[Rfam]
A member of the RNA family "PyrR binding site" from Niallia nealsonii, 110 nucleotides long.
NCBI's taxonomy places the organism under Bacteria, Bacillati, Bacillota, Bacillaceae, Niallia.
Gene Ontology terms of the family: pyrimidine nucleobase transport and pyrimidine nucleobase biosynthetic process.
This family represents the PyrR binding site and terminator structure.
It scores 58 bits against the family's covariance model.
RNA sequence: AGCCCUUUUAAGAGCAGUCCUGUGAGGCUGAUAAGGGGAGUAAACAAGGGAGGCUUAUUUCCUCCUGCGUAAAGCCCCUUAUGUGCCAUCAUACAUGAGGGGUUUUAUUU
Dot-bracket structure: ..((((((......(((((......)))))..))))))......((.((((((....))))).).))....((((((((((((((......)))))))))))))).....